[Rfam]
RNA sequence: CUACUCUAGCACAGAAUCACAUCCCGAUAAUCAACAGUGCUAGAAGGUUGAUUAUACCA
Numbered sequence: 001c002u003a004c005u006c007u008a009g010c011a012c013a014g015a016a017u018c019a020c021a022u023c024c025c026g027a028u029a030a031u032c033a034a035c036a037g038u039g040c041u042a043g044a045a046g047g048u049u050g051a052u053u054a055u056a057c058c059a
Stems, first nucleotide, its partner, number of pairs: 007042006028054008
Record summary: This 59-nucleotide sequence from Deltacoronavirus suis belongs to the Rfam family "Coronavirus 3' UTR pseudoknot". On this family, see Williams et al., J Virol 1999: "A phylogenetically conserved hairpin-type 3' untranslated region pseudoknot functions in coronavirus RNA replication". NCBI's taxonomy places the organism under Viruses, Pisuviricota, Nidovirales, Buldecovirus, Coronavirus HKU15. It is annotated as a cis-regulatory element.